[Rfam]
RNA sequence: CGUCUCUGCCCUUCCUGGGCGUUUCCUCCCUAAUGAACUGCCGCGGCUCCGGCCGCGGCUUUUUUUUGGCCUGA
Numbered sequence: 001c002g003u004c005u006c007u008g009c010c011c012u013u014c015c016u017g018g019g020c021g022u023u024u025c026c027u028c029c030c031u032a033a034u035g036a037a038c039u040g041c042c043g044c045g046g047c048u049c050c051g052g053c054c055g056c057g058g059c060u061u062u063u064u065u066u067u068g069g070c071c072u073g074a
Stems, first nucleotide, its partner, number of pairs: 008020004040059008
RNA: Makes More Granules Regulator RNA (mmgR)